Notes: The family of this 93-nucleotide RNA sequence from Polypterus senegalus is "mir-217 microRNA precursor family". Rfam 15.1 lists 698 matches to the family in 641 species. Its family is annotated with RISC complex and miRNA-mediated post-transcriptional gene silencing in the Gene Ontology. The base pairs follow the family's consensus structure, which was predicted with RNAalifold. It scores 103 bits against the family's covariance model. The organism belongs to Polypterus, within Eukaryota.

RNA sequence: GAUUGUCUGAUGUUGCAGAUACUGCAUCAGGAACUGAUUGGAUAAGAUUUGGUCACCAUCAGCUCCUAAUGCAUUGCCUUCAGCAUCUAAACG
Numbered sequence: 001g002a003u004u005g006u007c008u009g010a011u012g013u014u015g016c017a018g019a020u021a022c023u024g025c026a027u028c029a030g031g032a033a034c035u036g037a038u039u040g041g042a043u044a045a046g047a048u049u050u051g052g053u054c055a056c057c058a059u060c061a062g063c064u065c066c067u068a069a070u071g072c073a074u075u076g077c078c079u080u081c082a083g084c085a086u087c088u089a090a091a092c093g
Stems, first nucleotide, its partner, number of pairs: 023073005029067004034062004039058003